A member of the RNA family "IS605-orfB-I RNA", 198 nucleotides long.
It is annotated as a small RNA.
[Rfam]
RNA sequence: UCUGGAUAAACUUGUAUCCUUCCAAGAGAGAGGAGCAAGUCACUUUACAGAAUUAAAUUAAGUAACACAUUUAAGGAUUGCCAAAGGCUUACAUAUAAGUGAAAUCCUUGAAUGACAGGAUAACCGUAUGUCCUUUAGUAUUUUAUGCUAUAAAAAUAAUCUUGAAUAAUUUUAUGUAAGUUUUCAAGUUACGGUACC
Numbered sequence: 001u002c003u004g005g006a007u008a009a010a011c012u013u014g015u016a017u018c019c020u021u022c023c024a025a026g027a028g029a030g031a032g033g034a035g036c037a038a039g040u041c042a043c044u045u046u047a048c049a050g051a052a053u054u055a056a057a058u059u060a061a062g063u064a065a066c067a068c069a070u071u072u073a074a075g076g077a078u079u080g081c082c083a084a085a086g087g088c089u090u091a092c093a094u095a096u097a098a099g100u101g102a103a104a105u106c107c108u109u110g111a112a113u114g115a116c117a118g119g120a121u122a123a124c125c126g127u128a129u130g131u132c133c134u135u136u137a138g139u140a141u142u143u144u145a146u147g148c149u150a151u152a153a154a155a156a157u158a159a160u161c162u163u164g165a166a167u168a169a170u171u172u173u174a175u176g177u178a179a180g181u182u183u184u185c186a187a188g189u190u191a192c193g194g195u196a197c198c
Stems, first nucleotide, its partner, number of pairs: 001051004006046001008044001010040006017034005022028001068114004073109007087100002090097001117134005123195006129156001136150005161188006168181001170179002